[Rfam]
RNA sequence: CCGUAAAAGUGGCAACCUACUCGAAAGGGUAAUACGCAAAGCUUCCGGCCUAAGAGCAUAAUACAUGUUGAUGGUAGCGGGGUUACACAA
Numbered sequence: 001c002c003g004u005a006a007a008a009g010u011g012g013c014a015a016c017c018u019a020c021u022c023g024a025a026a027g028g029g030u031a032a033u034a035c036g037c038a039a040a041g042c043u044u045c046c047g048g049c050c051u052a053a054g055a056g057c058a059u060a061a062u063a064c065a066u067g068u069u070g071a072u073g074g075u076a077g078c079g080g081g082g083u084u085a086c087a088c089a090a
Stems, first nucleotide, its partner, number of pairs: 012037002018031005040084004045080003048075003055069004